Group II catalytic intron D1-D4-3: a 173-nucleotide RNA from Sporomusa sphaeroides. The organism belongs to Sporomusa sphaeroides, within Bacteria. Group II introns are found in rRNA, tRNA and mRNA of organelles in fungi, plants and protists, and also in mRNA in bacteria.
RNA sequence: UCCGCCGUGAGGCGGAAUCUGAAGUAAGCCUAAUGCAAACCCUUGGUCUGACGAAUAGAAACUACAUAUAAGGCAUAUGCAGGGAGGACGAGUUUGCUAACUAAAACAAAGUCCAAUACUGCCCGAACCCUGUGGUGUAAAUGUAGCAGAUAUAUGAGGGGAAGGUUAUCGCU
Numbered sequence: 001u002c003c004g005c006c007g008u009g010a011g012g013c014g015g016a017a018u019c020u021g022a023a024g025u026a027a028g029c030c031u032a033a034u035g036c037a038a039a040c041c042c043u044u045g046g047u048c049u050g051a052c053g054a055a056u057a058g059a060a061a062c063u064a065c066a067u068a069u070a071a072g073g074c075a076u077a078u079g080c081a082g083g084g085a086g087g088a089c090g091a092g093u094u095u096g097c098u099a100a101c102u103a104a105a106a107c108a109a110a111g112u113c114c115a116a117u118a119c120u121g122c123c124c125g126a127a128c129c130c131u132g133u134g135g136u137g138u139a140a141a142u143g144u145a146g147c148a149g150a151u152a153u154a155u156g157a158g159g160g161g162a163a164g165g166u167u168a169u170c171g172c173u
Stems, first nucleotide, its partner, number of pairs: 001016006028173001030171001032169001035166002040160006046151005062146006073138003078134007086114004092107004
Dot-bracket structure: ((((((....))))))...........(.(.(..((...(((((((((((...........((((((.....(((..(((((((.((((..((((........))))...)))).............))))))).)))..)))))))))))...))))))....))..).).)